[Rfam]
RNA sequence: AACGCACGUCACCUUGUCGCUUCAUUUUAGAUGAAGAGGAAAGUCCGAGCAUCAGAGAGCAUCACACUUCCUAACGGGAAGGCGCUCAUUUAUGAGUGACAGAAAGUGCCACAGAAAAUAUACCGCCUUUCGGGGUAAGGGUGAAAUGGUGGGGUAAGAGCCCACCGCGUCUAUGGCGACAUAGAUGGCAGGGUAAACCUUGUGAGAUGAAAGACCAAAUAGGUCUUACCACCCUUCGGGGAUGAAGUUGCUCGCUUCAUAGCUUUUGCGGGUAAGAUGGGUAGGUCGAUGGAGCCUAUGAGCAAUUGUAGGCCUAGAUAAAUGACAGGGACCACGUACUUUUUCUUCGGGAAUUGACCAUGGAGGUACAGAACUCGGCUUAUAGACGUGCGUUUUUU
Numbered sequence: 001a002a003c004g005c006a007c008g009u010c011a012c013c014u015u016g017u018c019g020c021u022u023c024a025u026u027u028u029a030g031a032u033g034a035a036g037a038g039g040a041a042a043g044u045c046c047g048a049g050c051a052u053c054a055g056a057g058a059g060c061a062u063c064a065c066a067c068u069u070c071c072u073a074a075c076g077g078g079a080a081g082g083c084g085c086u087c088a089u090u091u092a093u094g095a096g097u098g099a100c101a102g103a104a105a106g107u108g109c110c111a112c113a114g115a116a117a118a119u120a121u122a123c124c125g126c127c128u129u130u131c132g133g134g135g136u137a138a139g140g141g142u143g144a145a146a147u148g149g150u151g152g153g154g155u156a157a158g159a160g161c162c163c164a165c166c167g168c169g170u171c172u173a174u175g176g177c178g179a180c181a182u183a184g185a186u187g188g189c190a191g192g193g194u195a196a197a198c199c200u201u202g203u204g205a206g207a208u209g210a211a212a213g214a215c216c217a218a219a220u221a222g223g224u225c226u227u228a229c230c231a232c233c234c235u236u237c238g239g240g241g242a243u244g245a246a247g248u249u250g251c252u253c254g255c256u257u258c259a260u261a262g263c264u265u266u267u268g269c270g271g272g273u274a275a276g277a278u279g280g281g282u283a284g285g286u287c288g289a290u291g292g293a294g295c296c297u298a299u300g301a302g303c304a305a306u307u308g309u310a311g312g313c314c315u316a317g318a319u320a321a322a323u324g325a326c327a328g329g330g331a332c333c334a335c336g337u338a339c340u341u342u343u344u345c346u347u348c349g350g351g352a353a354u355u356g357a358c359c360a361u362g363g364a365g366g367u368a369c370a371g372a373a374c375u376c377g378g379c380u381u382a383u384a385g386a387c388g389u390g391c392g393u394u395u396u397u398u
Stems, first nucleotide, its partner, number of pairs: 001394010011383001012330007020036007041381003045378005050209004057266003062205005067081005082100001083098006101200002106198002108194003123140002125136004148166006167189001168187008213287004223278006257271002260268002294313008
Shown here is a 398-nucleotide RNA from Flammeovirga pectinis, a member of the family "Bacterial RNase P class A". Taxonomically the source falls in Flammeovirga (Bacteria, Bacteroidota, Cytophagia, Cytophagales). By type it is a ribozyme. A search with the family's covariance model found it, with a score of 271 bits.